[Rfam]
RNA sequence: GUGGGGGCUCCGGCUCGCACACUCCUCACACCAACCCGCCCGGCGCGUCCGGGCAUU
Numbered sequence: 001g002u003g004g005g006g007g008c009u010c011c012g013g014c015u016c017g018c019a020c021a022c023u024c025c026u027c028a029c030a031c032c033a034a035c036c037c038g039c040c041c042g043g044c045g046c047g048u049c050c051g052g053g054c055a056u057u
Stems, first nucleotide, its partner, number of pairs: 001020003005016004038054006